[Rfam]
RNA: Archaeal large subunit ribosomal RNA, nucleotides 920 to 1375
Organism: uncultured euryarchaeote Alv-FOS5
RNA sequence: CCCCCCGAGACAUCCCAUAGGAUGACCUCGGUGGAGGCAGACGGCAAGGUAGAGUCACUGAUUGGAAGGUCAAGGGGAGAAAUCCUCAGCCUUCCUGUCAAACUCCGAACUUGUCGUCGCUGUAGAAACCGGGAGUCGGGGCGUGGGGGUAAGCUCCACGUCCGAAAGGGGAACAACCCAGCCCGGGGUUAAGGUCCCAAAGUGCCGGCUAAGUGCUAAAUGCCAAAGGGUGUCCUUUGCCCAAGACAGCGGGGAGGUAGGCUUAGAAGCAGCCAUCCUUUAAAAAGUGCGUAACAGCUUACCCGCCGAGGCAGGGGGCCCUGAAGAUGGACGGGGCUCAAGCCGGCCACCGAUACCUCGGGGGUCUCCUAGAAAUAGGAGACAUCCGGUAGGGGGGCGUCCGGCGAGGGAGAAAGCUGGGCGGUAACGUCCAGUGAACCUCGCUGGAAUGAAGAU
Numbered sequence: 001c002c003c004c005c006c007g008a009g010a011c012a013u014c015c016c017a018u019a020g021g022a023u024g025a026c027c028u029c030g031g032u033g034g035a036g037g038c039a040g041a042c043g044g045c046a047a048g049g050u051a052g053a054g055u056c057a058c059u060g061a062u063u064g065g066a067a068g069g070u071c072a073a074g075g076g077g078a079g080a081a082a083u084c085c086u087c088a089g090c091c092u093u094c095c096u097g098u099c100a101a102a103c104u105c106c107g108a109a110c111u112u113g114u115c116g117u118c119g120c121u122g123u124a125g126a127a128a129c130c131g132g133g134a135g136u137c138g139g140g141g142c143g144u145g146g147g148g149g150u151a152a153g154c155u156c157c158a159c160g161u162c163c164g165a166a167a168g169g170g171g172a173a174c175a176a177c178c179c180a181g182c183c184c185g186g187g188g189u190u191a192a193g194g195u196c197c198c199a200a201a202g203u204g205c206c207g208g209c210u211a212a213g214u215g216c217u218a219a220a221u222g223c224c225a226a227a228g229g230g231u232g233u234c235c236u237u238u239g240c241c242c243a244a245g246a247c248a249g250c251g252g253g254g255a256g257g258u259a260g261g262c263u264u265a266g267a268a269g270c271a272g273c274c275a276u277c278c279u280u281u282a283a284a285a286a287g288u289g290c291g292u293a294a295c296a297g298c299u300u301a302c303c304c305g306c307c308g309a310g311g312c313a314g315g316g317g318g319c320c321c322u323g324a325a326g327a328u329g330g331a332c333g334g335g336g337c338u339c340a341a342g343c344c345g346g347c348c349a350c351c352g353a354u355a356c357c358u359c360g361g362g363g364g365u366c367u368c369c370u371a372g373a374a375a376u377a378g379g380a381g382a383c384a385u386c387c388g389g390u391a392g393g394g395g396g397g398c399g400u401c402c403g404g405c406g407a408g409g410g411a412g413a414a415a416g417c418u419g420g421g422c423g424g425u426a427a428c429g430u431c432c433a434g435u436g437a438a439c440c441u442c443g444c445u446g447g448a449a450u451g452a453a454g455a456u
Stems, first nucleotide, its partner, number of pairs: 001397006011024005026135001027133006036121003040118008052106001053104002060099003064095006074087005139163009168179003183361007193351003202348001204347006228322003232319010249306005255279003260274003280284001285300001289298002362387002364383005398451001400448010416435008